[Rfam]
Background:
S4-Flavobacteria ribosomal protein leader: a 34-nucleotide sequence. The family is grouped with related families in Rfam's "Ribosomal Protein S4 Leader clan". Pairs were carried over by alignment from the consensus structure, which is taken from published work.

RNA sequence: CGGUUAUCGAAGGAGAAAGCCUUAAUUCAUAACG
Numbered sequence: 001c002g003g004u005u006a007u008c009g010a011a012g013g014a015g016a017a018a019g020c021c022u023u024a025a026u027u028c029a030u031a032a033c034g
Stems, first nucleotide, its partner, number of pairs: 001034001003033005009028001010023004